[Rfam]
RNA sequence: GGUAUGAAGUAGAAAUUAUCCGUUUCUCACCUUACAGCGAGAGCUCGUUUGGUUAUUUGAUUGUGUAUAUUACAUAUUUAAGGCGGGUAAUUUGAAUUAUCCGCUUUUUUAUUGUUGC
Numbered sequence: 001g002g003u004a005u006g007a008a009g010u011a012g013a014a015a016u017u018a019u020c021c022g023u024u025u026c027u028c029a030c031c032u033u034a035c036a037g038c039g040a041g042a043g044c045u046c047g048u049u050u051g052g053u054u055a056u057u058u059g060a061u062u063g064u065g066u067a068u069a070u071u072a073c074a075u076a077u078u079u080a081a082g083g084c085g086g087g088u089a090a091u092u093u094g095a096a097u098u099a100u101c102c103g104c105u106u107u108u109u110u111a112u113u114g115u116u117g118c
Stems, first nucleotide, its partner, number of pairs: 011027006029053003034048002037044002082105010

Background:
Ribosomal protein L20 leader: a 118-nucleotide sequence from [Eubacterium] brachy. Taxonomically the source falls in [Eubacterium] brachy (Bacteria, Bacillati, Peptostreptococcales, Anaerovoracaceae). The family's RNA type in Rfam is cis-regulatory leader. For this family Rfam cites "Diverse mechanisms for regulating ribosomal protein synthesis in Escherichia coli" (Zengel and Lindahl, Prog Nucleic Acid Res Mol Biol, 1994). Rfam's curators write: This family is a putative r-protein leader autoregulatory structure found in B. subtilis and other low-GC Gram-positive bacteria.